Mason-Pfizer monkey virus packaging signal: a 282-nucleotide sequence from Sciurus vulgaris. The base pairs follow the family's consensus structure, which was predicted with PFOLD.
RNA sequence: UGGCACCCAACGUGAGGCUUGGGAUAUGGGGGAAUUCGCGAGGGAAGAGGUGUGUAAGCGUUAGGCCUAAGGAAAAAAAAAGUGAAAGUCAGUUCAAGAAAGUUCGCCUGCGGGAGCCUGCUGCGCCGUUCUUAAAGGUACAGUAGCACCUAAAGGGACAAGAAUUAAGUAAGCGUAAAGAUUUUGUUAAGCAACUAAAAGAAGCUUUAAAGACACGGGGAGUAAAGGUUAAGAGUAAUGAUCUUUUUAAGUUUUUUGACCUUAUUAAGGACACCUGUCCAU
Numbered sequence: 001u002g003g004c005a006c007c008c009a010a011c012g013u014g015a016g017g018c019u020u021g022g023g024a025u026a027u028g029g030g031g032g033a034a035u036u037c038g039c040g041a042g043g044g045a046a047g048a049g050g051u052g053u054g055u056a057a058g059c060g061u062u063a064g065g066c067c068u069a070a071g072g073a074a075a076a077a078a079a080a081a082g083u084g085a086a087a088g089u090c091a092g093u094u095c096a097a098g099a100a101a102g103u104u105c106g107c108c109u110g111c112g113g114g115a116g117c118c119u120g121c122u123g124c125g126c127c128g129u130u131c132u133u134a135a136a137g138g139u140a141c142a143g144u145a146g147c148a149c150c151u152a153a154a155g156g157g158a159c160a161a162g163a164a165u166u167a168a169g170u171a172a173g174c175g176u177a178a179a180g181a182u183u184u185u186g187u188u189a190a191g192c193a194a195c196u197a198a199a200a201g202a203a204g205c206u207u208u209a210a211a212g213a214c215a216c217g218g219g220g221a222g223u224a225a226a227g228g229u230u231a232a233g234a235g236u237a238a239u240g241a242u243c244u245u246u247u248u249a250a251g252u253u254u255u256u257u258g259a260c261c262u263u264a265u266u267a268a269g270g271a272c273a274c275c276u277g278u279c280c281a282u
Base pairs, nucleotide, nucleotide: 006032007031008030012027013026014025037049039047088139089138090137093135094134109125110124111123112122113121144161146159149157150156151155166209167208168207169205170204216258217257218256219255220254221253222252223251226244227243228242229241230240231239267282269280270279271278272277
Background: Rfam's curators write: This family represents a group of sequences that are related to the Mason-Pfizer monkey virus (MPMV) packaging signal. Taxonomically the source falls in Sciurus (Eukaryota, Chordata, Euarchontoglires, Sciuromorpha). By type it is a cis-regulatory element.